[Rfam]
RNA sequence: UAGCUGGUGUAAGUCCAGUCCGAGUAAUAACUCAGUAGCUCGGUAGUUGACAGACUUGGUAGAGAGAAAUUUCUAUUUGGUAACUGUGACAAAGUCAUCAGAGUAUGGCGAACAAAACUGCAGGUUGUAGCAUGA
Numbered sequence: 001u002a003g004c005u006g007g008u009g010u011a012a013g014u015c016c017a018g019u020c021c022g023a024g025u026a027a028u029a030a031c032u033c034a035g036u037a038g039c040u041c042g043g044u045a046g047u048u049g050a051c052a053g054a055c056u057u058g059g060u061a062g063a064g065a066g067a068a069a070u071u072u073c074u075a076u077u078u079g080g081u082a083a084c085u086g087u088g089a090c091a092a093a094g095u096c097a098u099c100a101g102a103g104u105a106u107g108g109c110g111a112a113c114a115a116a117a118c119u120g121c122a123g124g125u126u127g128u129a130g131c132a133u134g135a
Stems, first nucleotide, its partner, number of pairs: 020043005050087004055080002058077003064071002094109005112128003
RNA: Group II catalytic intron D1-D4-4